[Rfam]
mir-190 microRNA precursor family: a 76-nucleotide sequence from Turnix velox.
RNA sequence: GUCGCUGUAAGAAUAUGUUUGAUAUUUAGUUGGUUUCCAAUCAAACAACCUAAUAUCAAACAUAUCACACAGAGGC
Numbered sequence: 001g002u003c004g005c006u007g008u009a010a011g012a013a014u015a016u017g018u019u020u021g022a023u024a025u026u027u028a029g030u031u032g033g034u035u036u037c038c039a040a041u042c043a044a045a046c047a048a049c050c051u052a053a054u055a056u057c058a059a060a061c062a063u064a065u066c067a068c069a070c071a072g073a074g075g076c
Stems, first nucleotide, its partner, number of pairs: 005072004011066001013065014029049004
Annotation
A reference for the family is Kloosterman et al. (2006), "Cloning and expression of new microRNAs from zebrafish", Nucleic Acids Res. The family's consensus secondary structure was predicted with RNAalifold. Clan: mir-50 clan. A search with the family's covariance model found it, with a score of 49 bits.